Background: Purine riboswitch aptamer: a 102-nucleotide sequence from Amedibacterium intestinale. The base pairs follow the family's consensus structure, which is taken from published work. Rfam describes the family as follows. Riboswitches are metabolite binding domains within certain messenger RNAs that serve as precision sensors for their corresponding targets. Allosteric rearrangement of mRNA structure is mediated by ligand binding, and this results in modulation of gene expression. A class of riboswitches that selectively recognises guanine and becomes saturated at concentrations as low as 5 nM. In Bacillus subtilis, this mRNA motif is located on at least five separate transcriptional units that together encode 17 genes that are mostly involved in purine transport and purine nucleotide biosynthesis. It has also been shown that some members of this family are specific for adenine instead. Lineage of the source: Bacteria > Bacillati > Erysipelotrichia > Erysipelotrichales > Amedibacterium. A search with the family's covariance model found it, with a score of 68 bits.

[Rfam]
RNA sequence: UAUCCAUGUAUUGACUUACCUUGUAUAUACUUCGUAAUAUGGUCGAAGAGUUUCUAGCCGUUCUCCGUAAACGAACGGGCUACAAGUAAACAAUUACUCUUU
Numbered sequence: 001u002a003u004c005c006a007u008g009u010a011u012u013g014a015c016u017u018a019c020c021u022u023g024u025a026u027a028u029a030c031u032u033c034g035u036a037a038u039a040u041g042g043u044c045g046a047a048g049a050g051u052u053u054c055u056a057g058c059c060g061u062u063c064u065c066c067g068u069a070a071a072c073g074a075a076c077g078g079g080c081u082a083c084a085a086g087u088a089a090a091c092a093a094u095u096a097c098u099c100u101u102u
Base pairs, nucleotide, nucleotide: 020086021085022084023083024082025081030048031047032046033045034044058078059077060076061075062074063073